[Rfam]
RNA: terC RNA
RNA sequence: CCCUUGAUCCGGGCCCCUCUGAUGUAAGGCAAGCUGGCACUUACGUGAUGUCGGAUCUUCUUU
Numbered sequence: 001c002c003c004u005u006g007a008u009c010c011g012g013g014c015c016c017c018u019c020u021g022a023u024g025u026a027a028g029g030c031a032a033g034c035u036g037g038c039a040c041u042u043a044c045g046u047g048a049u050g051u052c053g054g055a056u057c058u059u060c061u062u063u
Base pairs, nucleotide, nucleotide: 006057007056008055009054010053011052012051022046023045024044025043026042027041028040